[Rfam]
RNA: pemK RNA
RNA sequence: CUAACGCUACUUCCGUCCAGCCACAGACUCAAGCAAUGGGGACGGCUCGGUGAGAACCACGGAGAGGUGAAAUUCCUAUGG
Numbered sequence: 001c002u003a004a005c006g007c008u009a010c011u012u013c014c015g016u017c018c019a020g021c022c023a024c025a026g027a028c029u030c031a032a033g034c035a036a037u038g039g040g041g042a043c044g045g046c047u048c049g050g051u052g053a054g055a056a057c058c059a060c061g062g063a064g065a066g067g068u069g070a071a072a073u074u075c076c077u078a079u080g081g
Stems, first nucleotide, its partner, number of pairs: 012078001013045006046064003050060003065077003